[Rfam]
RNA sequence: CCAAAGAACGAUCUAAAAGUUGGAUAAGACUUUGGUCUUAGUGUAUAGUUUUUUUGAAUUAAAGGAGCAAUAGCCCACCUAUUGUUUUCUAAGACUAUUAGUAUUGUUCUUUU
Numbered sequence: 001c002c003a004a005a006g007a008a009c010g011a012u013c014u015a016a017a018a019g020u021u022g023g024a025u026a027a028g029a030c031u032u033u034g035g036u037c038u039u040a041g042u043g044u045a046u047a048g049u050u051u052u053u054u055u056g057a058a059u060u061a062a063a064g065g066a067g068c069a070a071u072a073g074c075c076c077a078c079c080u081a082u083u084g085u086u087u088u089c090u091a092a093g094a095c096u097a098u099u100a101g102u103a104u105u106g107u108u109c110u111u112u113u
Stems, first nucleotide, its partner, number of pairs: 009022004061113012080094001082092002
RNA: Plastid-psbA-1 3UTR RNA